[Rfam]
Nucleotides: 103
Stems, first nucleotide, its partner, number of pairs: 011093006019083003022079003027074005033068002
Number, partner (000 for none) and nucleotide at each position: 001000u002000u003000a004000a005000a006000a007000u008000u009000a010000a011093a012092u013091g014090g015089c016088g017000a018000u019083u020082g021081u022079c023078g024077g025000u026000a027074u028073g029072g030071u031070c032000u033068c034067u035000u036000u037000u038000u039000c040000a041000a042000c043000a044000u045000a046000u047000a048000c049000a050000c051000c052000a053000a054000a055000g056000a057000u058000u059000c060000u061000a062000u063000a064000u065000a066000a067034a068033g069000u070031g071030a072029c073028u074027a075000g076000a077024c078023c079022g080000a081021a082020c083019a084000c085000u086000c087000g088016u089015g090014c091013u092012a093011u094000a095000a096000u097000u098000u099000u100000a101000a102000a103000a